Annotation: The record is a 107-nucleotide RNA sequence from Caldibacillus thermoamylovorans, which matches "SAM riboswitch aptamer (S box leader)" in Rfam. The base pairs follow the family's consensus structure, which is taken from published work. It scores 93 bits against the family's covariance model.
RNA sequence: AUCUUAUCACGAGUGACUGAGGGACAGGCCCUAUGAAGUCACAGCAACCCCCUGAAAAGGGAAGGUGCUAACUCCUGCAGAUUGGUUCGCCAUCUGAGAGAUAAGAG
Numbered sequence: 001a002u003c004u005u006a007u008c009a010c011g012a013g014u015g016a017c018u019g020a021g022g023g024a025c026a027g028g029c030c031c032u033a034u035g036a037a038g039u040c041a042c043a044g045c046a047a048c049c050c051c052c053u054g055a056a057a058a059g060g061g062a063a064g065g066u067g068c069u070a071a072c073u074c075c076u077g078c079a080g081a082u083u084g085g086u087u088c089g090c091c092a093u094c095u096g097a098g099a100g101a102u103a104a105g106a107g
Stems, first nucleotide, its partner, number of pairs: 002106007013042005021031003025077004043069004048065002050061004073099001078096005
Dot-bracket structure: .(((((((....(((((...(((.[[[[)))......)))))((((.((((((....))))..))))))...(]]]](((((.........)))))..)))))))).